S16-Flavobacteria ribosomal protein leader: a 35-nucleotide RNA. It is annotated as a cis-regulatory leader. Pairs were carried over by alignment from the consensus structure, which is taken from published work. Rfam's curators put it in the seed alignment.

[Rfam]
RNA sequence: AUUAAUAAUCGGGGUCGGGAACCCCACAAUUUAAU
Numbered sequence: 001a002u003u004a005a006u007a008a009u010c011g012g013g014g015u016c017g018g019g020a021a022c023c024c025c026a027c028a029a030u031u032u033a034a035u
Base pairs, nucleotide, nucleotide: 001035002034003033004032005031011025012024013023014022015021